[Rfam]
RNA: mir-24 microRNA precursor family
Organism: Jaculus jaculus
Nucleotides: 070
Stems, first nucleotide, its partner, number of pairs: 003070004008065002011062003015058009028047004
Number, partner (000 for none) and nucleotide at each position: 001000g002000c003070c004069u005068c006067c007000u008065g009064u010000g011062c012061c013060u014000a015058c016057u017056g018055a019054a020053c021052u022051g023050a024000a025000a026000c027000a028047c029046a030045g031044u032000u033000u034000g035000u036000u037000u038000g039000a040000u041000u042000g043000c044031a045030c046029u047028g048000g049000c050023u051022c052021a053020g054019u055018u056017c057016a058015g059000c060013a061012g062011g063000a064009a065008c066000a067006g068005g069004a070003g